[Rfam]
RNA sequence: GGCUCAAUGAUUGCUAGCCUUAAUUUGGCAGUAUACGCUAUUCUGAGUAUUACAAUUGGCUGAGAAUUAAUUAUAAUGAGAGCU
Numbered sequence: 001g002g003c004u005c006a007a008u009g010a011u012u013g014c015u016a017g018c019c020u021u022a023a024u025u026u027g028g029c030a031g032u033a034u035a036c037g038c039u040a041u042u043c044u045g046a047g048u049a050u051u052a053c054a055a056u057u058g059g060c061u062g063a064g065a066a067u068u069a070a071u072u073a074u075a076a077u078g079a080g081a082g083c084u
Base pairs, nucleotide, nucleotide: 001084002083003082004081005080
RNA: Small nucleolar RNA U54